[Rfam]
RNA sequence: CUAUAUAUACCCUGUAGAUCCGAAUUUGUGUUAUAAACGCAGUCACAAAUUCGCUUCUUGGGGACUAUGUAGU
Numbered sequence: 001c002u003a004u005a006u007a008u009a010c011c012c013u014g015u016a017g018a019u020c021c022g023a024a025u026u027u028g029u030g031u032u033a034u035a036a037a038c039g040c041a042g043u044c045a046c047a048a049a050u051u052c053g054c055u056u057c058u059u060g061g062g063g064a065c066u067a068u069g070u071a072g073u
Stems, first nucleotide, its partner, number of pairs: 002071006010063003016058003021053010
Rfam assigns this 73-nucleotide RNA sequence from Gadus morhua to the family "mir-10 microRNA precursor family". Taxonomically the source falls in Gadus (Eukaryota, Craniata, Euteleostomi, Clupeocephala). The match comes from Rfam's covariance-model search (75 bits).